This 169-nucleotide part of an RNA from Cercophora newfieldiana belongs to the Rfam family "Ascomycota telomerase RNA". Its family is annotated with telomerase activity, telomerase catalytic core complex and telomere maintenance via telomerase in the Gene Ontology. On this family, see Qi et al., Nucleic Acids Res 2013: "The common ancestral core of vertebrate and fungal telomerase RNAs". The match comes from Rfam's covariance-model search (640 bits). The source organism's lineage runs through Eukaryota, Pezizomycotina, Sordariomycetes, Sordariales and Cercophora.
RNA sequence: AUCAAGGUGCCGACUGCCUUCACGGGCGGAAGGUGCUUUCCCUUCGAUGGGGCCCCGAAAGGGAACUCCAGCUGAAGAUGAUAGCGCGGUUUUUAAGGAUGUAUUUUGCCCGUGCGUUGGUGCCCUCCUGGCGUUGUACCGGGAGAGGAAGCAAAAACUAGUCCCAGUU
Numbered sequence: 001a002u003c004a005a006g007g008u009g010c011c012g013a014c015u016g017c018c019u020u021c022a023c024g025g026g027c028g029g030a031a032g033g034u035g036c037u038u039u040c041c042c043u044u045c046g047a048u049g050g051g052g053c054c055c056c057g058a059a060a061g062g063g064a065a066c067u068c069c070a071g072c073u074g075a076a077g078a079u080g081a082u083a084g085c086g087c088g089g090u091u092u093u094u095a096a097g098g099a100u101g102u103a104u105u106u107u108g109c110c111c112g113u114g115c116g117u118u119g120g121u122g123c124c125c126u127c128c129u130g131g132c133g134u135u136g137u138a139c140c141g142g143g144a145g146a147g148g149a150a151g152c153a154a155a156a157a158c159u160a161g162u163c164c165c166a167g168u169u
Base pairs, nucleotide, nucleotide: 007036008035009034014032016027017026018025041080042077043076044075045074046073048070049069050068051066054063056061098163099162100161101158102157104156105155106154107153108152109151123148124147125145126144127143128142131139133137